c-di-GMP-I-GGC riboswitch aptamer: a 77-nucleotide RNA.
Pairs were carried over by alignment from the consensus structure, which is taken from published work.
The family has 40 seed sequences and 1,298 matches in Rfam 15.1.

RNA sequence: CAAGAGAAAGCCAAACCCGCCGCGAGGCGGGGACGGAAAGCCACGGAUCUCGCGCAGAGACAGCCGGGUUGCCUGCA
Numbered sequence: 001c002a003a004g005a006g007a008a009a010g011c012c013a014a015a016c017c018c019g020c021c022g023c024g025a026g027g028c029g030g031g032g033a034c035g036g037a038a039a040g041c042c043a044c045g046g047a048u049c050u051c052g053c054g055c056a057g058a059g060a061c062a063g064c065c066g067g068g069u070u071g072c073c074u075g076c077a
Stems, first nucleotide, its partner, number of pairs: 003074002011036002016031006034063001039070004044066003048060002